[Rfam]
RNA sequence: CAAGCAGGCCGCCUUAUCGCUUCACGGAACGGUGAAGAGGAAAGUCCGGACACCAGAGGGCAGCAUAGCGGGUAACGCCCGUCAUCCGCCAUGGCGGAGAGGACAAGUGCAACAGAAAGUAUGUACAGGUAAUGCUGUAGUGAAACCAGGUAAACUCUAUGCGGUGAAAUGCCAUGUAUACCGGCUAUAAGUAGGGCUGCCCGCCCGAUGCCGGGGGGUAGGCAGAUUGAGCGUAAUAGUAAUGUUGCGCCUAGAUAAAUGAUAAGGCUCUAUUUAUUAGAGACAGAAUCCGGCUUACAGGCCUGCUUUUAUU
Numbered sequence: 001c002a003a004g005c006a007g008g009c010c011g012c013c014u015u016a017u018c019g020c021u022u023c024a025c026g027g028a029a030c031g032g033u034g035a036a037g038a039g040g041a042a043a044g045u046c047c048g049g050a051c052a053c054c055a056g057a058g059g060g061c062a063g064c065a066u067a068g069c070g071g072g073u074a075a076c077g078c079c080c081g082u083c084a085u086c087c088g089c090c091a092u093g094g095c096g097g098a099g100a101g102g103a104c105a106a107g108u109g110c111a112a113c114a115g116a117a118a119g120u121a122u123g124u125a126c127a128g129g130u131a132a133u134g135c136u137g138u139a140g141u142g143a144a145a146c147c148a149g150g151u152a153a154a155c156u157c158u159a160u161g162c163g164g165u166g167a168a169a170u171g172c173c174a175u176g177u178a179u180a181c182c183g184g185c186u187a188u189a190a191g192u193a194g195g196g197c198u199g200c201c202c203g204c205c206c207g208a209u210g211c212c213g214g215g216g217g218g219u220a221g222g223c224a225g226a227u228u229g230a231g232c233g234u235a236a237u238a239g240u241a242a243u244g245u246u247g248c249g250c251c252u253a254g255a256u257a258a259a260u261g262a263u264a265a266g267g268c269u270c271u272a273u274u275u276a277u278u279a280g281a282g283a284c285a286g287a288a289u290c291c292g293g294c295u296u297a298c299a300g301g302c303c304u305g306c307u308u309u310u311a312u313u
Base pairs, nucleotide, nucleotide: 002308003307004306005305006304007303008302009301010300011298012267013266014265015264016263017262018261020037021036022035023034024033025032042296043295044294046293047292048291049290050289051166052165053164054163058202059201060200061199063162064161065160066159067158068082069081070080071079072078083101085098086097087096088095089094102157103156107155108154109151110150124139125138126137127136128135170224171223172222173221181214182213183212184211185210194206195205196204197203231250232249233248234247235246236245237244238243
Dot-bracket structure: .(((((((((((((((((.((((((......))))))....[[[.[[[[[((((...[[[[.((((((((((.....)))))(.(((((....)))))..)((...((((.............(((((......)))))..........))..)))))))))))))...((((.......(((((........((((.]]]]))))...)))))......))))......((((((((....))))))))..........))))))).....................]]]]]]]].).))))))))).....